The family of this 138-nucleotide sequence from Neobacillus massiliamazoniensis is "PyrR binding site". The match comes from Rfam's covariance-model search (64 bits). Rfam 15.1 lists 1,498 matches to the family in 930 species. Pairs were carried over by alignment from the consensus structure, which is taken from published work.

RNA sequence: UGAACCUUUUAAAUAAAGUCCAGAGAGGCUUAGAAGGGUGUAGUACAUGAAAACAGGAAUGGAGUAAGGUAAGUCCAUACCUGAUUUCGAAAGUACAAAUUUUUUGCACCCUGAUCAUUUGGUCAGGGUAUUUUUUUA
Numbered sequence: 001u002g003a004a005c006c007u008u009u010u011a012a013a014u015a016a017a018g019u020c021c022a023g024a025g026a027g028g029c030u031u032a033g034a035a036g037g038g039u040g041u042a043g044u045a046c047a048u049g050a051a052a053a054c055a056g057g058a059a060u061g062g063a064g065u066a067a068g069g070u071a072a073g074u075c076c077a078u079a080c081c082u083g084a085u086u087u088c089g090a091a092a093g094u095a096c097a098a099a100u101u102u103u104u105u106g107c108a109c110c111c112u113g114a115u116c117a118u119u120u121g122g123u124c125a126g127g128g129u130a131u132u133u134u135u136u137u138a
Stems, first nucleotide, its partner, number of pairs: 003039001005037005016031005050087003054083004059078005106131001108129009